[Rfam]
Shown here is a 48-nucleotide RNA, a member of the family "chrB-b RNA". The family's RNA type in Rfam is cis-regulatory element.

RNA sequence: CGGGGAUCGCAGGCUCCCCAUCAGACGGCCUCACCGUCCAAGCACUGC
Numbered sequence: 001c002g003g004g005g006a007u008c009g010c011a012g013g014c015u016c017c018c019c020a021u022c023a024g025a026c027g028g029c030c031u032c033a034c035c036g037u038c039c040a041a042g043c044a045c046u047g048c
Stems, first nucleotide, its partner, number of pairs: 002019005009048004024038005